[Rfam]
RNA sequence: CGUAUUAGAUGAUGAAACCUCCAAACAAUCUUAGGACACCUUCUGACACAGUGCUGGUAGCUCUGUGAGUGAGAAGGCAAUUCUUUUCUGAUGAUAAU
Numbered sequence: 001c002g003u004a005u006u007a008g009a010u011g012a013u014g015a016a017a018c019c020u021c022c023a024a025a026c027a028a029u030c031u032u033a034g035g036a037c038a039c040c041u042u043c044u045g046a047c048a049c050a051g052u053g054c055u056g057g058u059a060g061c062u063c064u065g066u067g068a069g070u071g072a073g074a075a076g077g078c079a080a081u082u083c084u085u086u087u088c089u090g091a092u093g094a095u096a097a098u
Base pairs, nucleotide, nucleotide: 003096004095005094006093007092044050045049